[Rfam]
RNA sequence: UCGUCGAGGAUGCCGGGGGCGAUCAGGUGGACAUGGGAGUCGACCGCGCCCGCGGUGAGGAUCUUGCCGUUUGCGGCCAGGAUCUCGGUGGACGGGCCGAUCACGAGGCCGGGAUGGACGCCGUCCAUCGUGUCGGGGUUGCCGGCCUUGCCGAUCGCGGUGAUCCGGCCGUCCCUGAUGCCGACGUCGGCCUUGACCACGCCCCAGUGGUCGAGGAUCACGGCGCCGGUGAUGACCAGGUCGGGGGCGCCCUCCGCGCGCGUGGCGCGGGCCUGGCCCAUCGACUCGCGG
Numbered sequence: 001u002c003g004u005c006g007a008g009g010a011u012g013c014c015g016g017g018g019g020c021g022a023u024c025a026g027g028u029g030g031a032c033a034u035g036g037g038a039g040u041c042g043a044c045c046g047c048g049c050c051c052g053c054g055g056u057g058a059g060g061a062u063c064u065u066g067c068c069g070u071u072u073g074c075g076g077c078c079a080g081g082a083u084c085u086c087g088g089u090g091g092a093c094g095g096g097c098c099g100a101u102c103a104c105g106a107g108g109c110c111g112g113g114a115u116g117g118a119c120g121c122c123g124u125c126c127a128u129c130g131u132g133u134c135g136g137g138g139u140u141g142c143c144g145g146c147c148u149u150g151c152c153g154a155u156c157g158c159g160g161u162g163a164u165c166c167g168g169c170c171g172u173c174c175c176u177g178a179u180g181c182c183g184a185c186g187u188c189g190g191c192c193u194u195g196a197c198c199a200c201g202c203c204c205c206a207g208u209g210g211u212c213g214a215g216g217a218u219c220a221c222g223g224c225g226c227c228g229g230u231g232a233u234g235a236c237c238a239g240g241u242c243g244g245g246g247g248c249g250c251c252c253u254c255c256g257c258g259c260g261c262g263u264g265g266c267g268c269g270g271g272c273c274u275g276g277c278c279c280a281u282c283g284a285c286u287c288g289c290g291g
Base pairs, nucleotide, nucleotide: 001291002290003289005288006287007286008285011162012161013160014159015158017074019072029050030049032048036045037044055067056066057065075152076151079148080147081146083144088142089141090140091139093137095134096133097132103128107125108124109123111121168277169276170275171274174271175270176269177268179267180266181265182264190224191223192222194220195219204213227262228261229259234254235253239251240250
This 291-nucleotide sequence from Streptosporangiaceae bacterium NEAU-GS5 belongs to the Rfam family "5' ureB small RNA". The base pairs follow the family's consensus structure, which was predicted with mfold. For this family Rfam cites "Helicobacter pylori 5'ureB-sRNA, a cis-encoded antisense small RNA, negatively regulates ureAB expression by transcription termination" (Wen et al., J Bacteriol, 2013).